RNA sequence: UGCAGACCGUGGGGGUGCUCUGUCUCCGCGCGGGACAGGGCUGAGAGCAUACCCUUUGAACCUGAUCCGGGUAAUGCCGGCGCAGGGAAACGGUCACCGAUCGCAC
Numbered sequence: 001u002g003c004a005g006a007c008c009g010u011g012g013g014g015g016u017g018c019u020c021u022g023u024c025u026c027c028g029c030g031c032g033g034g035a036c037a038g039g040g041c042u043g044a045g046a047g048c049a050u051a052c053c054c055u056u057u058g059a060a061c062c063u064g065a066u067c068c069g070g071g072u073a074a075u076g077c078c079g080g081c082g083c084a085g086g087g088a089a090a091c092g093g094u095c096a097c098c099g100a101u102c103g104c105a106c
Stems, first nucleotide, its partner, number of pairs: 006094005011055004016049001017041010061086004067080004
This 106-nucleotide RNA sequence from Rhodothermus marinus belongs to the Rfam family "TPP riboswitch aptamer (THI element)". Lineage of the source: Bacteria > Pseudomonadati > Rhodothermales > Rhodothermus > Rhodothermus marinus.